[Rfam]
RNA sequence: UGUGGGCCAUGUUCUUCAAUUUGUAGAUUUUCAGCAAAGAAGUAUUUGGUCCAUAGA
Numbered sequence: 001u002g003u004g005g006g007c008c009a010u011g012u013u014c015u016u017c018a019a020u021u022u023g024u025a026g027a028u029u030u031u032c033a034g035c036a037a038a039g040a041a042g043u044a045u046u047u048g049g050u051c052c053a054u055a056g057a
Base pairs, nucleotide, nucleotide: 001055002054003053004052005051006050007049008048009047011045020038021037022036023035
The family of this 57-nucleotide RNA sequence from Monodelphis domestica is "mir-7386 microRNA precursor family". Rfam's curators put it in the seed alignment.